A member of the RNA family "c-di-AMP riboswitch aptamer (ydaO/yuaA leader)" from Thermoanaerobacterium sp. RBIITD, 118 nucleotides long. The match comes from Rfam's covariance-model search (88 bits).
RNA sequence: AAUUAUUAAAUGCCUAAUCGAAAUGAACGGGGGAUUUUUUAGGGGUGAAUCCGCAUUGCGGUAGGGUUACUCUUUACCGAACCCGACAACUAACCUCGUAGGCGGAAAGAGAGGAUGA
Dot-bracket structure: ..........((((...(((...)))((((((....(....)(((.....((((...))))..((.(........)))...))).........)))))).))))..............

The source organism's lineage runs through Bacteria, Clostridia, Thermoanaerobacterales, Thermoanaerobacteraceae and Thermoanaerobacterium.